[Rfam]
RNA: Histone 3' UTR stem-loop
RNA sequence: CCAAAGGCUCUUUUCAGAGCCACUACUUUUUCAAAAAGAGUGCUGU
Numbered sequence: 001c002c003a004a005a006g007g008c009u010c011u012u013u014u015c016a017g018a019g020c021c022a023c024u025a026c027u028u029u030u031u032c033a034a035a036a037a038g039a040g041u042g043c044u045g046u
Stems, first nucleotide, its partner, number of pairs: 006021006
Dot-bracket structure: .....((((((....)))))).........................